[Rfam]
RNA sequence: UGUUGCUCCUCAUGUGACGCAAUCUUGGUUAACCCCCCCAGGGCGGAAACGCAGCAAGGGUACCUGAGCUCUUGCGGGUGCGUGAGGAGCUUUUGCU
Numbered sequence: 001u002g003u004u005g006c007u008c009c010u011c012a013u014g015u016g017a018c019g020c021a022a023u024c025u026u027g028g029u030u031a032a033c034c035c036c037c038c039c040a041g042g043g044c045g046g047a048a049a050c051g052c053a054g055c056a057a058g059g060g061u062a063c064c065u066g067a068g069c070u071c072u073u074g075c076g077g078g079u080g081c082g083u084g085a086g087g088a089g090c091u092u093u094u095g096c097u
Base pairs, nucleotide, nucleotide: 005090006089007088008087009086010085011084012083013082014081015078018076019075020074021073022072024068025067026066027065028064030062035060036059037058043052044051045050
Annotation:
Shown here is a 97-nucleotide sequence from Canibacter oris, a member of the family "Bacterial small signal recognition particle RNA". Its family is annotated with SRP-dependent cotranslational protein targeting to membrane, signal sequence recognition and signal recognition particle, plasma membrane targeting in the Gene Ontology. The organism belongs to Canibacter, within Bacteria. The family's consensus secondary structure is taken from published work. Clan: SRP clan. It scores 56 bits against the family's covariance model.